A member of the RNA family "Small nucleolar RNA SNORA71" from Trichechus manatus, 134 nucleotides long. By type it is an H/ACA-box small nucleolar RNA. Its family is annotated with RNA processing and nucleolus in the Gene Ontology. For this family Rfam cites "The family of box ACA small nucleolar RNAs is defined by an evolutionarily conserved secondary structure and ubiquitous sequence elements essential for RNA accumulation" (Ganot et al., Genes Dev, 1997). Pairs were carried over by alignment from the consensus structure, which was predicted with PFOLD. A search with the family's covariance model found it, with a score of 89 bits. From the family's description: The members of this family belong to the H/ACA class of snoRNAs which bind a number of proteins (including dyskerin, Gar1p and Nop10p) to form snoRNP complexes.
Nucleotides: 134
Stems, first nucleotide, its partner, number of pairs: 002056008014045001016043004021038001023037004067133001070131002073128003086117001088115003091111002094108002
Number, partner (000 for none) and nucleotide at each position: 001000u002056c003055c004054u005053g006052c007051a008050u009049u010000c011000a012000u013000a014045a015000c016043u017042g018041a019040u020000c021038a022000u023037g024036g025035a026034c027000u028000g029000c030000c031000u032000g033000u034026g035025u036024c037023c038021u039000u040019g041018u042017c043016a044000u045014u046000g047000g048000u049009a050008g051007u052006g053005c054004a055003g056002g057000c058000a059000c060000a061000g062000g063000a064000a065000a066000u067133g068000u069000g070131g071130g072000a073128a074127g075126g076000g077000u078000u079000g080000u081000c082000c083000c084000a085000u086117a087000u088115u089114u090113g091111g092110a093000a094108g095107g096000u097000c098000c099000a100000c101000a102000u103000c104000c105000u106000u107095c108094c109000c110092u111091u112000c113090c114089a115088g116000u117086u118000c119000c120000a121000g122000g123000a124000g125000g126075c127074c128073u129000c130071c131070u132000a133067c134000a